[Rfam]
RNA: Small nucleolar RNA SNORD35
RNA sequence: UGCAAGUGAUGUUUUUCUCACGAUGGUCUUCCUAACCUGUACGGUUCUGACGAUAAUGCCUAUUGGCAACGCUGAUGCAGCAGA
Dot-bracket structure: ((((.......................................................................)))).....